Shown here is a 143-nucleotide sequence from Mesocricetus auratus, a member of the family "Small Cajal body specific RNA 21". NCBI's taxonomy places the organism under Eukaryota, Deuterostomia, Euarchontoglires, Muroidea, Mesocricetus. Rfam's curators write: scaRNAs are a specific class of small nuclear RNAs which localise to the Cajal bodies and guide the modification of RNA polymerase II transcribed spliceosomal RNAs U1, U2, U4, U5 and U12. ACA68 (SCARNA21) is a member of the H/ACA class of snoRNAs that guide the sites of modification of uridines to pseudouridines. This snoRNA was identified by computational screening and its expression in mouse experimentally verified by Northern blot and primer extension analysis. ACA68 is proposed to guide the pseudouridylation of residue U19 in U12 snRNA. The family has 24 seed sequences and 278 matches in Rfam 15.1. Rfam links the family to the GO terms nucleolus, RNA processing and Cajal body.

RNA sequence: AGGCUCUAUUUCCUGGGAUGUGGGCUUAGUCUUCCCCACUUCCCCUCAGCAGAGCCUAGAAUAAAAAGGGGUCCAGGCCUCGUCCCUCAUGAGAGGGGUGUUUGAGGAAUUAGCCUCUCCCAGGCUAGCCUGACCUCACAUUU
Numbered sequence: 001a002g003g004c005u006c007u008a009u010u011u012c013c014u015g016g017g018a019u020g021u022g023g024g025c026u027u028a029g030u031c032u033u034c035c036c037c038a039c040u041u042c043c044c045c046u047c048a049g050c051a052g053a054g055c056c057u058a059g060a061a062u063a064a065a066a067a068g069g070g071g072u073c074c075a076g077g078c079c080u081c082g083u084c085c086c087u088c089a090u091g092a093g094a095g096g097g098g099u100g101u102u103u104g105a106g107g108a109a110u111u112a113g114c115c116u117c118u119c120c121c122a123g124g125c126u127a128g129c130c131u132g133a134c135c136u137c138a139c140a141u142u143u
Stems, first nucleotide, its partner, number of pairs: 002056006015044004020039005068137005075131003081124001083122001091116001093114001